A member of the RNA family "Mammalian CPEB3 ribozyme" from Alligator sinensis, 80 nucleotides long.
RNA sequence: AGUGGUUGCAAGGUCAAGGCCACUGCAGGAGCGCUCAUGACGUGGCCCUGACAGAUUCCACCAGGUCUGUGAAUUCUGCU
Numbered sequence: 001a002g003u004g005g006u007u008g009c010a011a012g013g014u015c016a017a018g019g020c021c022a023c024u025g026c027a028g029g030a031g032c033g034c035u036c037a038u039g040a041c042g043u044g045g046c047c048c049u050g051a052c053a054g055a056u057u058c059c060a061c062c063a064g065g066u067c068u069g070u071g072a073a074u075u076c077u078g079c080u
Base pairs, nucleotide, nucleotide: 013048018047019046020045021044025079026078027077028076029075030074031043032042033041052069053068054067055066056065057064

Rfam links the family to the GO term RNA nuclease activity. It scores 46 bits against the family's covariance model. The source organism's lineage runs through Eukaryota, Deuterostomia, Dipnotetrapodomorpha, Amniota and Alligator.